[Rfam]
RNA sequence: AAUAAAGAAAUGAUAAAUCAGAUUUUUCUUUCUAAUUUUUAGUUUUUUCUUCCUAAAAAAAUUCAAAAUCAACAAAAAAUGUUAAAAAUCAGGAGAAAAGAAAUUUUGAUUUGUCAUUCUCCUAUU
Number, nucleotide and partner (000 for none) at each position: 001a126002a125003u124004a123005a000006a000007g120008a000009a118010a117011u116012g115013a114014u113015a112016a111017a110018u109019c108020a107021g106022a105023u103024u102025u101026u098027u097028c000029u095030u094031u093032c092033u091034a000035a089036u088037u087038u086039u085040u000041a083042g082043u000044u000045u079046u078047u077048u076049c000050u000051u000052c000053c000054u000055a000056a000057a000058a000059a000060a000061a000062u000063u000064c000065a000066a000067a000068a000069u000070c000071a000072a000073c000074a000075a000076a048077a047078a046079a045080u000081g000082u042083u041084a000085a039086a038087a037088a036089u035090c000091a033092g032093g031094a030095g029096a000097a027098a026099a000100g000101a025102a024103a023104u000105u022106u021107u020108g019109a018110u017111u016112u015113g014114u013115c012116a011117u010118u009119c000120u007121c000122c000123u004124a003125u002126u001
RNA: MIR7504 microRNA precursor family
Organism: Gossypium stocksii